The record is a 119-nucleotide sequence from Artemisia annua, which matches "U5 spliceosomal RNA" in Rfam. From the family's description: U5 RNA is a component of both types of known spliceosome. The precise function of this molecule is unknown, though it is known that the 5' loop is required for splice site selection and p220 binding, and that both the 3' stem-loop and the Sm site are important for Sm protein binding and cap methylation. NCBI's taxonomy places the organism under Eukaryota, Spermatophyta, Asterales, Asteraceae, Artemisia. It is annotated as a spliceosomal small nuclear RNA. It scores 87 bits against the family's covariance model. The base pairs follow the family's consensus structure, which is taken from published work.

[Rfam]
RNA sequence: AGCCAAGCAAUGAGCACAAAGCGAACUAUUCUUUCGCCUUUUACUAAAGAAUACCGUGUGCCCGUUGUAUAAAUUGGCAUACGCCUAUUUUUGGAGAGCUUCUACCCAAAAGGAAGAAC
Numbered sequence: 001a002g003c004c005a006a007g008c009a010a011u012g013a014g015c016a017c018a019a020a021g022c023g024a025a026c027u028a029u030u031c032u033u034u035c036g037c038c039u040u041u042u043a044c045u046a047a048a049g050a051a052u053a054c055c056g057u058g059u060g061c062c063c064g065u066u067g068u069a070u071a072a073a074u075u076g077g078c079a080u081a082c083g084c085c086u087a088u089u090u091u092u093g094g095a096g097a098g099c100u101u102c103u104a105c106c107c108a109a110a111a112g113g114a115a116g117a118a119c
Stems, first nucleotide, its partner, number of pairs: 003077004008067005014061005027053008100118004105113001